A member of the RNA family "ZMP/ZTP riboswitch aptamer (pfl RNA motif)" from Actinoplanes utahensis, 85 nucleotides long. The family's consensus secondary structure is taken from published work. A search with the family's covariance model found it, with a score of 44 bits.
RNA sequence: GGAGGCACGCAGCGACUGGCGGCACAGGGAUGGUCGAACCAUCGGGGAGCUCGUCACAUCGGAGUCGACCGCCUGGGCUCCGGCC
Dot-bracket structure: ...(..(((.(((..(([[[[[.......((((.....))))..))..))))))..)....(((((..]]]]]..))))).....